[Rfam]
RNA sequence: CUACUGUGCCGCGUGGUGAAUGGCUCGGCUCGAGUGCCGACGAAGGACGUGCCAAGCUGCGAUAAGCCUCGGGGACCCGCACGGAGGGGUGGAACCGAGGAUUUCCGAAUGGGAAUCCCCACAGCAAUUGCUUCGCGCAAUGGGGAACGUCCGGAACUGAAACAUCUUAGUACGGACAGGAAAAGAAACCGAAUGGGAUGUCGUUAGUAACGGCGAGUGAACGCGGCGUAGUCCAAACCGAAGCCUUCGGGCAAUGUGGUGUAUGGGCUGGCCGUAAUCGGUUGAUUGACUACGAGAAGUCUUCUGGAACGGAGCGCGAUACAGGGUGACAGCCCCGUAUCGUAGUCAGUCGACCGUGGGCCGGUUCCCUGAGUAUCGGGGGUCGGAAAUCCCUCGUGAAGAUGGCAGGCAUCUACUGCCAAGACUAAAUACUACUCGAGACCGAUAGUGGACAAGUAGCGUGAGUGAACGCUGAAAAGCACCCUGAGAAAGGAGGUGCAAUAGGGCCUGAAAUCACGCGGUGAUGGAGC
Numbered sequence: 001c002u003a004c005u006g007u008g009c010c011g012c013g014u015g016g017u018g019a020a021u022g023g024c025u026c027g028g029c030u031c032g033a034g035u036g037c038c039g040a041c042g043a044a045g046g047a048c049g050u051g052c053c054a055a056g057c058u059g060c061g062a063u064a065a066g067c068c069u070c071g072g073g074g075a076c077c078c079g080c081a082c083g084g085a086g087g088g089g090u091g092g093a094a095c096c097g098a099g100g101a102u103u104u105c106c107g108a109a110u111g112g113g114a115a116u117c118c119c120c121a122c123a124g125c126a127a128u129u130g131c132u133u134c135g136c137g138c139a140a141u142g143g144g145g146a147a148c149g150u151c152c153g154g155a156a157c158u159g160a161a162a163c164a165u166c167u168u169a170g171u172a173c174g175g176a177c178a179g180g181a182a183a184a185g186a187a188a189c190c191g192a193a194u195g196g197g198a199u200g201u202c203g204u205u206a207g208u209a210a211c212g213g214c215g216a217g218u219g220a221a222c223g224c225g226g227c228g229u230a231g232u233c234c235a236a237a238c239c240g241a242a243g244c245c246u247u248c249g250g251g252c253a254a255u256g257u258g259g260u261g262u263a264u265g266g267g268c269u270g271g272c273c274g275u276a277a278u279c280g281g282u283u284g285a286u287u288g289a290c291u292a293c294g295a296g297a298a299g300u301c302u303u304c305u306g307g308a309a310c311g312g313a314g315c316g317c318g319a320u321a322c323a324g325g326g327u328g329a330c331a332g333c334c335c336c337g338u339a340u341c342g343u344a345g346u347c348a349g350u351c352g353a354c355c356g357u358g359g360g361c362c363g364g365u366u367c368c369c370u371g372a373g374u375a376u377c378g379g380g381g382g383u384c385g386g387a388a389a390u391c392c393c394u395c396g397u398g399a400a401g402a403u404g405g406c407a408g409g410c411a412u413c414u415a416c417u418g419c420c421a422a423g424a425c426u427a428a429a430u431a432c433u434a435c436u437c438g439a440g441a442c443c444g445a446u447a448g449u450g451g452a453c454a455a456g457u458a459g460c461g462u463g464a465g466u467g468a469a470c471g472c473u474g475a476a477a478a479g480c481a482c483c484c485u486g487a488g489a490a491a492g493g494a495g496g497u498g499c500a501a502u503a504g505g506g507c508c509u510g511a512a513a514u515c516a517c518g519c520g521g522u523g524a525u526g527g528a529g530c
Stems, first nucleotide, its partner, number of pairs: 007523010022508001023472002027443002029440006036432001045106003048061003067100006076088003111120003127141005148179001149177005159166002189196002200227005210218002230426004238259003269363004279356004293342003299315001301314004318322001324336003377396006404420005459466002
This 530-nucleotide part of an RNA from Halocatena salina belongs to the Rfam family "Archaeal large subunit ribosomal RNA". NCBI's taxonomy places the organism under Archaea, Methanobacteriota, Halobacteriales, Natronomonadaceae, Halocatena.